RNA sequence: UCUUUUCUUUCUACCACAUACUCGUGAAUGGCUUGACACCAGCAUCGCCUUCGGGCGCAUAAUGGAGUCGCUGUUCAGUUUGACUUCGAGGAGCCAUCAAAUCCCCAUGAUGUCAAUUAUCUAGUCAACGGGUCUGAGAUCGAUUAAGCACCUGCAACCUCGACGUUUUGAGCCCUUCACGGGAGCUCGACGGAGAGACGGGUGUCUUGAGUCACUAUAUUCCAAAUCUUUUCGCAGAUGCCGUCGGCUUAUGAUGCUAAAGACUCACCAUGGUGAAUACAGUU
Numbered sequence: 001u002c003u004u005u006u007c008u009u010u011c012u013a014c015c016a017c018a019u020a021c022u023c024g025u026g027a028a029u030g031g032c033u034u035g036a037c038a039c040c041a042g043c044a045u046c047g048c049c050u051u052c053g054g055g056c057g058c059a060u061a062a063u064g065g066a067g068u069c070g071c072u073g074u075u076c077a078g079u080u081u082g083a084c085u086u087c088g089a090g091g092a093g094c095c096a097u098c099a100a101a102u103c104c105c106c107a108u109g110a111u112g113u114c115a116a117u118u119a120u121c122u123a124g125u126c127a128a129c130g131g132g133u134c135u136g137a138g139a140u141c142g143a144u145u146a147a148g149c150a151c152c153u154g155c156a157a158c159c160u161c162g163a164c165g166u167u168u169u170g171a172g173c174c175c176u177u178c179a180c181g182g183g184a185g186c187u188c189g190a191c192g193g194a195g196a197g198a199c200g201g202g203u204g205u206c207u208u209g210a211g212u213c214a215c216u217a218u219a220u221u222c223c224a225a226a227u228c229u230u231u232u233c234g235c236a237g238a239u240g241c242c243g244u245c246g247g248c249u250u251a252u253g254a255u256g257c258u259a260a261a262g263a264c265u266c267a268c269c270a271u272g273g274u275g276a277a278u279a280c281a282g283u284u
Stems, first nucleotide, its partner, number of pairs: 018135001020133006026076006035069003039065002044060001046057004081127005090114002093111001095109001146208003149204006164192004170188004175183002212276007227263005234257003240248003
A member of the RNA family "A. fumigatus sRNA Afu_309" from Pseudogymnoascus sp. VKM F-4281, 284 nucleotides long. The literature on the family includes a 2008 paper in Nucleic Acids Res by Jochl et al., "Small ncRNA transcriptome analysis from Aspergillus fumigatus suggests a novel mechanism for regulation of protein synthesis". The base pairs follow the family's consensus structure, which was predicted with WAR. Lineage of the source: Eukaryota > Ascomycota > leotiomyceta > Leotiomycetes > Pseudogymnoascus.